[Rfam]
RNA sequence: GGGUGCUUGAGACUUUCCGUCUCAGGCAUGGGACGGAAAGUGGAAAGCCCCAUCUGACUAUAAAUCAAGAUGGGGCCCUAAACUUCACGUCGCACCGUGGAGGUUAGUGCCUUACCUGCAAAAGCAAGGAGGCAUCCAUG
Numbered sequence: 001g002g003g004u005g006c007u008u009g010a011g012a013c014u015u016u017c018c019g020u021c022u023c024a025g026g027c028a029u030g031g032g033a034c035g036g037a038a039a040g041u042g043g044a045a046a047g048c049c050c051c052a053u054c055u056g057a058c059u060a061u062a063a064a065u066c067a068a069g070a071u072g073g074g075g076c077c078c079u080a081a082a083c084u085u086c087a088c089g090u091c092g093c094a095c096c097g098u099g100g101a102g103g104u105u106a107g108u109g110c111c112u113u114a115c116c117u118g119c120a121a122a123a124g125c126a127a128g129g130a131g132g133c134a135u136c137c138a139u140g
Base pairs, nucleotide, nucleotide: 001051002050003049005048006047007046008045012041013040014039015038016037017036018035019034020033021032022031023030052071053070054069055068056066057065059063072111073110075108076107081104083102084101085100086099087098088097089096115132116131117130
Shown here is a 140-nucleotide RNA sequence from Trabulsiella odontotermitis, a member of the family "sok antitoxin (CssrC)". It scores 88 bits against the family's covariance model. For this family Rfam cites "Nucleotide sequence and transcriptional analysis of a third function (Flm) involved in F-plasmid maintenance" (Loh et al., Gene, 1988). Rfam describes the family as follows. Also identified in Shigella as CssrC.